[Rfam]
RNA: mir-15 microRNA precursor family
RNA sequence: GCCGGUCCCGCUCCAGCAGCACUUCAAUAUUGGCAGUGUCCACCCCCUCCGGCCGCCAGUAUUGCCUGUGCUGCUCCAGGGGGGCUCGG
Numbered sequence: 001g002c003c004g005g006u007c008c009c010g011c012u013c014c015a016g017c018a019g020c021a022c023u024u025c026a027a028u029a030u031u032g033g034c035a036g037u038g039u040c041c042a043c044c045c046c047c048u049c050c051g052g053c054c055g056c057c058a059g060u061a062u063u064g065c066c067u068g069u070g071c072u073g074c075u076c077c078a079g080g081g082g083g084g085c086u087c088g089g
Base pairs, nucleotide, nucleotide: 002088004086005085006084015075016074017073018072019071020070021069022068026063027062028061029060030059031058032057033056034055036053